[Rfam]
RNA sequence: CCCCCGCUUUUCCUCCCUGAGCGGGGCCUGGGACGGCUGCAAGGCCCAGCAGGCUUACUCGCCCGGCCCCGCGCCGGGCUUUUUUUG
Dot-bracket structure: ..((((((...........))))))(((((...................)))))......(((((((.....)))))))........

Source information: The family of this 87-nucleotide sequence from Acidovorax sp. HDW3 is "Burkholderia RNA 7 (anti-hemB)". The organism belongs to Acidovorax, within Bacteria. Pairs were carried over by alignment from the consensus structure, which is taken from published work. A search with the family's covariance model found it, with a score of 51 bits. This RNA motif was identified by computational search in b-proteobacteria Burkholderia. Co-purified with Hfq, expression confirmed by Northern blot. A reference for the family is Weinberg et al. (2007), "Identification of 22 candidate structured RNAs in bacteria using the CMfinder comparative genomics pipeline", Nucleic Acids Res. Rfam classes the family as a small RNA. Gene Ontology terms of the family: bacterial biofilm matrix and protein binding.